MIR8565 microRNA precursor family: a 153-nucleotide RNA sequence from Amborella trichopoda. The base pairs follow the family's consensus structure, which was predicted with RNAalifold.

RNA sequence: CGCACACCCAUGUGUGUAGGACCUCAAAGGUUACCAUUAAAUUUGGCACAGAUCUCAAAAAAAGUUGUCACAUUGGUGUGGGACUUGACUUUUCUAGAGAUCUGUACCAAAUUUAAUGGUGAUCCUUUGGGGUCCUAUACACGUGGGUGUGGG
Numbered sequence: 001c002g003c004a005c006a007c008c009c010a011u012g013u014g015u016g017u018a019g020g021a022c023c024u025c026a027a028a029g030g031u032u033a034c035c036a037u038u039a040a041a042u043u044u045g046g047c048a049c050a051g052a053u054c055u056c057a058a059a060a061a062a063a064g065u066u067g068u069c070a071c072a073u074u075g076g077u078g079u080g081g082g083a084c085u086u087g088a089c090u091u092u093u094c095u096a097g098a099g100a101u102c103u104g105u106a107c108c109a110a111a112u113u114u115a116a117u118g119g120u121g122a123u124c125c126u127u128u129g130g131g132g133u134c135c136u137a138u139a140c141a142c143g144u145g146g147g148u149g150u151g152g153g
Stems, first nucleotide, its partner, number of pairs: 003151011015139014030123002033120014048105009058095001060093008068081005
Its family is annotated with miRNA-mediated post-transcriptional gene silencing and RISC complex in the Gene Ontology.